[Rfam]
RNA sequence: CGUUUUAGAAAGCCGAAUCCAGCUCAGGUACGGGGGAACCAGUUUUAUGGGGUGAAACCUGAUUAGCACUGGCUUUUCAGGUAGGGUGCCUGCAACCCUAACCCGUCAGCUAACCUCGGAGGCCAAGGAGAGGGGAAAC
Numbered sequence: 001c002g003u004u005u006u007a008g009a010a011a012g013c014c015g016a017a018u019c020c021a022g023c024u025c026a027g028g029u030a031c032g033g034g035g036g037a038a039c040c041a042g043u044u045u046u047a048u049g050g051g052g053u054g055a056a057a058c059c060u061g062a063u064u065a066g067c068a069c070u071g072g073c074u075u076u077u078c079a080g081g082u083a084g085g086g087u088g089c090c091u092g093c094a095a096c097c098c099u100a101a102c103c104c105g106u107c108a109g110c111u112a113a114c115c116u117c118g119g120a121g122g123c124c125a126a127g128g129a130g131a132g133g134g135g136a137a138a139c
Stems, first nucleotide, its partner, number of pairs: 012123003019028002031118005040049002050104003058081004084098004
Shown here is a 139-nucleotide RNA from Sporomusa sphaeroides, a member of the family "c-di-AMP riboswitch aptamer (ydaO/yuaA leader)". NCBI's taxonomy places the organism under Bacteria, Negativicutes, Selenomonadales, Sporomusaceae, Sporomusa sphaeroides. A search with the family's covariance model found it, with a score of 98 bits.